[Rfam]
RNA sequence: UGUCUCCUCCACCCUCCUCCUUUGGUGUGGAUUUAACGCAGUCCCAAACGGACUGCGUUUUUUUU
Numbered sequence: 001u002g003u004c005u006c007c008u009c010c011a012c013c014c015u016c017c018u019c020c021u022u023u024g025g026u027g028u029g030g031a032u033u034u035a036a037c038g039c040a041g042u043c044c045c046a047a048a049c050g051g052a053c054u055g056c057g058u059u060u061u062u063u064u065u
Base pairs, nucleotide, nucleotide: 008031009030010029011028012027013025014024036058037057038056039055040054041053042052043051

The record is a 65-nucleotide RNA sequence from Azoarcus olearius, which matches "Betaproteobacteria toxic small RNA" in Rfam. Lineage of the source: Bacteria > Betaproteobacteria > Rhodocyclales > Zoogloeaceae > Azoarcus. Rfam's curators write: Overexpression in amino aid rich medium attenuates growth, suggesting role in repressing amino acid intake and metabolism. On this family, see Kimelman et al., Genome Res 2012: "A vast collection of microbial genes that are toxic to bacteria".